[Rfam]
A member of the RNA family "Eukaryotic small subunit ribosomal RNA" from Percolomonas cosmopolitus, 529 nucleotides of a longer RNA. The source organism's lineage runs through Eukaryota, Heterolobosea, Eutetramitea, Percolomonadidae and Percolomonas.
RNA sequence: CGUUCGUAGUUUACUUAAGUUAUUUUUUAUUAUUGUCGGUUUAUUAACUCUACUUUUAUUUUAUGUGAAUAAAGUAAAGGGUUCACCUUCGGGUCGAUUUAAGGGAAGAUAACUCUUUAUUGGUGAGAAACAAUGUAGAGCUAUUUAUCAAAGCAUAAAUAGUAUCUUAUUGUGGAUCAUGGCAAUAAUUGAAAAGUAACGUUUAGAAGUGAGAAAAAAUCUAUAUGCUUCAUGUAAGCUAAACCGUUCUAAUCUUCGGAAAAGAACAAUUUUUUGCUUGAAAGUUAUAGCUUGCUAUCCUUUAAAAUUGUAUGGAAGUUAUUAUCCUUAGAGGUAAUAAAAGAAAUACAGUGUUUAUAAUGGAACUCAUGUCAAGUUAACAGUAUUACUAAGAUAGAGGUGAAAUUCAAUAACCCUAGUAAGACUACCUAAUGCUAACGCAGUUAACAAGACUGGCUUCAUCAAUCAGGAACUAAAGUUAGAGGAUCGAAGAUGAUUAGAUACCGUUGUAGUUCUAACCGUAAACUAU
Numbered sequence: 001c002g003u004u005c006g007u008a009g010u011u012u013a014c015u016u017a018a019g020u021u022a023u024u025u026u027u028u029a030u031u032a033u034u035g036u037c038g039g040u041u042u043a044u045u046a047a048c049u050c051u052a053c054u055u056u057u058a059u060u061u062u063a064u065g066u067g068a069a070u071a072a073a074g075u076a077a078a079g080g081g082u083u084c085a086c087c088u089u090c091g092g093g094u095c096g097a098u099u100u101a102a103g104g105g106a107a108g109a110u111a112a113c114u115c116u117u118u119a120u121u122g123g124u125g126a127g128a129a130a131c132a133a134u135g136u137a138g139a140g141c142u143a144u145u146u147a148u149c150a151a152a153g154c155a156u157a158a159a160u161a162g163u164a165u166c167u168u169a170u171u172g173u174g175g176a177u178c179a180u181g182g183c184a185a186u187a188a189u190u191g192a193a194a195a196g197u198a199a200c201g202u203u204u205a206g207a208a209g210u211g212a213g214a215a216a217a218a219a220u221c222u223a224u225a226u227g228c229u230u231c232a233u234g235u236a237a238g239c240u241a242a243a244c245c246g247u248u249c250u251a252a253u254c255u256u257c258g259g260a261a262a263a264g265a266a267c268a269a270u271u272u273u274u275u276g277c278u279u280g281a282a283a284g285u286u287a288u289a290g291c292u293u294g295c296u297a298u299c300c301u302u303u304a305a306a307a308u309u310g311u312a313u314g315g316a317a318g319u320u321a322u323u324a325u326c327c328u329u330a331g332a333g334g335u336a337a338u339a340a341a342a343g344a345a346a347u348a349c350a351g352u353g354u355u356u357a358u359a360a361u362g363g364a365a366c367u368c369a370u371g372u373c374a375a376g377u378u379a380a381c382a383g384u385a386u387u388a389c390u391a392a393g394a395u396a397g398a399g400g401u402g403a404a405a406u407u408c409a410a411u412a413a414c415c416c417u418a419g420u421a422a423g424a425c426u427a428c429c430u431a432a433u434g435c436u437a438a439c440g441c442a443g444u445u446a447a448c449a450a451g452a453c454u455g456g457c458u459u460c461a462u463c464a465a466u467c468a469g470g471a472a473c474u475a476a477a478g479u480u481a482g483a484g485g486a487u488c489g490a491a492g493a494u495g496a497u498u499a500g501a502u503a504c505c506g507u508u509g510u511a512g513u514u515c516u517a518a519c520c521g522u523a524a525a526c527u528a529u
Stems, first nucleotide, its partner, number of pairs: 002473004009466003363460003368455002372451001376448006382426002386422006393415001397408003434441002478519006488512001492508004